RNA sequence: CGACCGCCGCAGCGAUGCGGCCGAGGCCACACGGACAGCCGGGUCGAAUGCCGA
Numbered sequence: 001c002g003a004c005c006g007c008c009g010c011a012g013c014g015a016u017g018c019g020g021c022c023g024a025g026g027c028c029a030c031a032c033g034g035a036c037a038g039c040c041g042g043g044u045c046g047a048a049u050g051c052c053g054a
Stems, first nucleotide, its partner, number of pairs: 001046005006021006
The family of this 54-nucleotide sequence is "Streptococcus sRNA SpF59 (ldcC RNA)". On this family, see Mann et al., PLoS Pathog 2012: "Control of virulence by small RNAs in Streptococcus pneumoniae". The family's RNA type in Rfam is small RNA. The base pairs follow the family's consensus structure, which was predicted with mfold. It is one of the family's seed sequences.